RNA: Group II catalytic intron D1-D4-1
Organism: Dysgonamonadaceae bacterium
RNA sequence: CACGAGUGGCAGCGAUGCAGCUUUUAUCCUGCAAGAAGUUGGCAGAGGUCAUAGUAGUCUAUUGAUGCAAGGAUAGAUGAAGGAC
Numbered sequence: 001c002a003c004g005a006g007u008g009g010c011a012g013c014g015a016u017g018c019a020g021c022u023u024u025u026a027u028c029c030u031g032c033a034a035g036a037a038g039u040u041g042g043c044a045g046a047g048g049u050c051a052u053a054g055u056a057g058u059c060u061a062u063u064g065a066u067g068c069a070a071g072g073a074u075a076g077a078u079g080a081a082g083g084a085c
Base pairs, nucleotide, nucleotide: 002025004023005022006021007020009018010017011016039046040045048085049084050083057078058077059076060075061074062073